[Rfam]
RNA sequence: AUACCCCAUGAUGCUCAGGUCCGCCGCAUCUCCUGGGUCCGUGGGGUUGGCCGGUUGGUGCUGGUGUUAGUGGCCUCCUCGUACCGCAGCCAGUUGCCAGCCGGCCCCCAA
Numbered sequence: 001a002u003a004c005c006c007c008a009u010g011a012u013g014c015u016c017a018g019g020u021c022c023g024c025c026g027c028a029u030c031u032c033c034u035g036g037g038u039c040c041g042u043g044g045g046g047u048u049g050g051c052c053g054g055u056u057g058g059u060g061c062u063g064g065u066g067u068u069a070g071u072g073g074c075c076u077c078c079u080c081g082u083a084c085c086g087c088a089g090c091c092a093g094u095u096g097c098c099a100g101c102c103g104g105c106c107c108c109c110a111a
Base pairs, nucleotide, nucleotide: 003047004046005045006044007043008042009041010039014037015036016035017034018033019032049106050105051104052103053102054101055100056099057098058097059096